The record is a 75-nucleotide sequence from Streptomyces tateyamensis, which matches "ASpks TB sRNA" in Rfam. The family has 77 seed sequences and 9,052 matches in Rfam 15.1. The base pairs follow the family's consensus structure, which is taken from published work. The family's RNA type in Rfam is antisense RNA. The match comes from Rfam's covariance-model search (86 bits). Taxonomically the source falls in Streptomyces (Bacteria, Bacillati, Actinomycetes, Streptomycetaceae).
RNA sequence: CUUGAUCGAACCCAGCCAGAGCGGCUGGUCGCCCGGUCGGUCCUGCCCGUAGGUCGCCAGCAGCGCCUGCGCCUC
Numbered sequence: 001c002u003u004g005a006u007c008g009a010a011c012c013c014a015g016c017c018a019g020a021g022c023g024g025c026u027g028g029u030c031g032c033c034c035g036g037u038c039g040g041u042c043c044u045g046c047c048c049g050u051a052g053g054u055c056g057c058c059a060g061c062a063g064c065g066c067c068u069g070c071g072c073c074u075c
Stems, first nucleotide, its partner, number of pairs: 014026004033069001038065002043060003047056001049054001